The record is a 102-nucleotide RNA sequence from Escherichia coli, which matches "Antisense to pHK01_035" in Rfam. The literature on the family includes a 2017 paper in FEMS Microbiol Ecol by Jiang et al., "The CTX-M-14 plasmid pHK01 encodes novel small RNAs and influences host growth and motility". From the family's description: The pHK01 produces plasmid-encoded small RNAs and mediates expression of host sRNAs. Rfam classes the family as an antisense RNA. The organism belongs to Escherichia, within Bacteria.

[Rfam]
RNA sequence: UGUCAUAAAUGAAACUCCUUAUGACACAGGUUAGUGAAGCCGUGAAAAUCGAUUGCGGCGAUUUCUACGGCGUGGAUUAAGCAGGUCCCUGACCUGCUUUUU
Numbered sequence: 001u002g003u004c005a006u007a008a009a010u011g012a013a014a015c016u017c018c019u020u021a022u023g024a025c026a027c028a029g030g031u032u033a034g035u036g037a038a039g040c041c042g043u044g045a046a047a048a049u050c051g052a053u054u055g056c057g058g059c060g061a062u063u064u065c066u067a068c069g070g071c072g073u074g075g076a077u078u079a080a081g082c083a084g085g086u087c088c089c090u091g092a093c094c095u096g097c098u099u100u101u102u
Base pairs, nucleotide, nucleotide: 001026002025003024004023005022006021007020008019039071040070041069042068043067044066048062049061050060051059079099080098081097082096083095084094085093086092087091